[Rfam]
RNA sequence: CUUUUGCAGACCGCGUUAAGGAUUGAAGUGACAUCCUUUUUUAAUUUUUUCUAUUAAAAAAGAUAUAACGGAAAGCUUGACCACGA
Numbered sequence: 001c002u003u004u005u006g007c008a009g010a011c012c013g014c015g016u017u018a019a020g021g022a023u024u025g026a027a028g029u030g031a032c033a034u035c036c037u038u039u040u041u042u043a044a045u046u047u048u049u050u051c052u053a054u055u056a057a058a059a060a061a062g063a064u065a066u067a068a069c070g071g072a073a074a075g076c077u078u079g080a081c082c083a084c085g086a
Stems, first nucleotide, its partner, number of pairs: 019078003023074002028069002033064003039059007